[Rfam]
RNA: Bacterial RNase P class A
Organism: Actinorugispora endophytica
RNA sequence: GGAGUCGGCCAGACGGUCGCGGCGCCGCGUGCGGCGUCGAGGAAAGUCCGGACUCCACAGGGCAGGGUGGUCGGCAACACCGACCCGGGGCGACCCGCGGGACAGUGCCACAGAAAGCAGACCGCCACCGGCCCAGGCCGGUGGUAAGGGUGAAACGGUGGUGUAAGAGACCACCAGCGGCCGGAGUGAUCCGGUCGGCUAGGUAAACCCCACCCGGAGCAAGGUCAAGAGGGGGACCACGGUCCCCUGCGCGGACGAUCGAGGGCUGCCCGCCCGAUGUCCGCGGGUAGACCGCACCGAGGCCGCUGGCAACAGCGGCCCCAGAUGGAUGGCCGUCCGGUCCGCACGGACCGACAGAAUCCGGCUUACCGGCCGACUCCUCUU
Numbered sequence: 001g002g003a004g005u006c007g008g009c010c011a012g013a014c015g016g017u018c019g020c021g022g023c024g025c026c027g028c029g030u031g032c033g034g035c036g037u038c039g040a041g042g043a044a045a046g047u048c049c050g051g052a053c054u055c056c057a058c059a060g061g062g063c064a065g066g067g068u069g070g071u072c073g074g075c076a077a078c079a080c081c082g083a084c085c086c087g088g089g090g091c092g093a094c095c096c097g098c099g100g101g102a103c104a105g106u107g108c109c110a111c112a113g114a115a116a117g118c119a120g121a122c123c124g125c126c127a128c129c130g131g132c133c134c135a136g137g138c139c140g141g142u143g144g145u146a147a148g149g150g151u152g153a154a155a156c157g158g159u160g161g162u163g164u165a166a167g168a169g170a171c172c173a174c175c176a177g178c179g180g181c182c183g184g185a186g187u188g189a190u191c192c193g194g195u196c197g198g199c200u201a202g203g204u205a206a207a208c209c210c211c212a213c214c215c216g217g218a219g220c221a222a223g224g225u226c227a228a229g230a231g232g233g234g235g236a237c238c239a240c241g242g243u244c245c246c247c248u249g250c251g252c253g254g255a256c257g258a259u260c261g262a263g264g265g266c267u268g269c270c271c272g273c274c275c276g277a278u279g280u281c282c283g284c285g286g287g288u289a290g291a292c293c294g295c296a297c298c299g300a301g302g303c304c305g306c307u308g309g310c311a312a313c314a315g316c317g318g319c320c321c322c323a324g325a326u327g328g329a330u331g332g333c334c335g336u337c338c339g340g341u342c343c344g345c346a347c348g349g350a351c352c353g354a355c356a357g358a359a360u361c362c363g364g365c366u367u368a369c370c371g372g373c374c375g376a377c378u379c380c381u382c383u384u
Stems, first nucleotide, its partner, number of pairs: 001380010012337007020039008044367003048364005053219004060271004065215005070084005085099001086097004100210002105208002107204003122149002124145009157175006177199001178197008223293004232284001234282004263275004301320008